[Rfam]
RNA sequence: AAGGGUGUGUGUGACUGGCGUAACGUGGGGUACCACGAGGGAGCACAUAUUUUAUACGGCCGAACGCCUGGGCAGAGGUA
Number, nucleotide and partner (000 for none) at each position: 001a000002a000003g052004g051005g050006u049007g048008u047009g046010u045011g044012u043013g000014a000015c040016u039017g068018g067019c066020g065021u064022a000023a000024c000025g036026u035027g034028g033029g000030g000031u000032a000033c028034c027035a026036c025037g000038a000039g016040g015041g000042a000043g012044c011045a010046c009047a008048u007049a006050u005051u004052u003053u000054a000055u000056a000057c075058g000059g073060c072061c071062g000063a000064a021065c020066g019067c018068c017069u000070g000071g061072g060073c059074a000075g057076a000077g000078g000079u000080a000
Background:
Shown here is an 80-nucleotide RNA from Paenibacillus sp. MY03, a member of the family "ZMP/ZTP riboswitch aptamer (pfl RNA motif)". A search with the family's covariance model found it, with a score of 62 bits. The base pairs follow the family's consensus structure, which is taken from published work.